RNA: S-element
RNA sequence: UGUCAAGAGUCUCGGCGCUGUUUCGGCGAGCAGGUUUCUUUUGCCCAACGACAGGUGAGAGAGAAUG
Numbered sequence: 001u002g003u004c005a006a007g008a009g010u011c012u013c014g015g016c017g018c019u020g021u022u023u024c025g026g027c028g029a030g031c032a033g034g035u036u037u038c039u040u041u042u043g044c045c046c047a048a049c050g051a052c053a054g055g056u057g058a059g060a061g062a063g064a065a066u067g
Base pairs, nucleotide, nucleotide: 010062011061012060013059016057017056018055019054021053023051024050025049028046030044031043032042033041034040
Dot-bracket structure: .........((((..((((.(.(((..(.(((((.....))))).)..))).))))).)))).....